[Rfam]
The family of this 87-nucleotide sequence from Anopheles gambiae is "mir-927 microRNA precursor family". The base pairs follow the family's consensus structure, which was predicted with RNAalifold.
RNA sequence: UUGUUAACGUUUCGUUUCAGAAUCCAAACGCUUUGCCGCACUACUUUAAUCACGGGUAAAGCGUAGGAAUUCUAAAACAAACCAUUA
Numbered sequence: 001u002u003g004u005u006a007a008c009g010u011u012u013c014g015u016u017u018c019a020g021a022a023u024c025c026a027a028a029c030g031c032u033u034u035g036c037c038g039c040a041c042u043a044c045u046u047u048a049a050u051c052a053c054g055g056g057u058a059a060a061g062c063g064u065a066g067g068a069a070u071u072c073u074a075a076a077a078c079a080a081a082c083c084a085u086u087a
Stems, first nucleotide, its partner, number of pairs: 010081003014078004019073003023069001025067001028064007036056002
The family has 16 seed sequences and 174 matches in Rfam 15.1. Rfam links the family to the GO terms miRNA-mediated post-transcriptional gene silencing and RISC complex. Taxonomically the source falls in Anopheles gambiae (Eukaryota, Opisthokonta, Protostomia, Endopterygota). On this family, see Ruby et al., Genome Res 2007: "Evolution, biogenesis, expression, and target predictions of a substantially expanded set of Drosophila microRNAs".